The family of this 72-nucleotide sequence from Mus musculus is "mir-344 microRNA precursor family". Gene Ontology terms of the family: miRNA-mediated post-transcriptional gene silencing and RISC complex. For this family Rfam cites "Mammalian microRNAs: experimental evaluation of novel and previously annotated genes" (Chiang et al., Genes Dev, 2010).
RNA sequence: UUGCUAGUCAGGCUCCUGGCUGGAGGCCAGCUCUCAGCUGCUUCCAGGCUGUGGCCAGGGCCUGAAUGGAUG
Numbered sequence: 001u002u003g004c005u006a007g008u009c010a011g012g013c014u015c016c017u018g019g020c021u022g023g024a025g026g027c028c029a030g031c032u033c034u035c036a037g038c039u040g041c042u043u044c045c046a047g048g049c050u051g052u053g054g055c056c057a058g059g060g061c062c063u064g065a066a067u068g069g070a071u072g
Stems, first nucleotide, its partner, number of pairs: 008065002011062004017057006024050001028040004
Dot-bracket structure: .......((.((((..((((((.(...((((.....)))).........).)))))).)))).)).......